[Rfam]
RNA: Bacteroidales small SRP
Organism: Rufibacter tibetensis
RNA sequence: UUUGCAACGGCAAAUCGGUACGGCCAGCUCCUGCUGAACUCCCCCAGGCCCGGAAGGGAGCAAGGGUAGGUGGUUGAGCGGCGCGAUACUCGGUUUGCCGCUUU
Numbered sequence: 001u002u003u004g005c006a007a008c009g010g011c012a013a014a015u016c017g018g019u020a021c022g023g024c025c026a027g028c029u030c031c032u033g034c035u036g037a038a039c040u041c042c043c044c045c046a047g048g049c050c051c052g053g054a055a056g057g058g059a060g061c062a063a064g065g066g067u068a069g070g071u072g073g074u075u076g077a078g079c080g081g082c083g084c085g086a087u088a089c090u091c092g093g094u095u096u097g098c099c100g101c102u103u104u
Stems, first nucleotide, its partner, number of pairs: 008100008018089003021085002023082002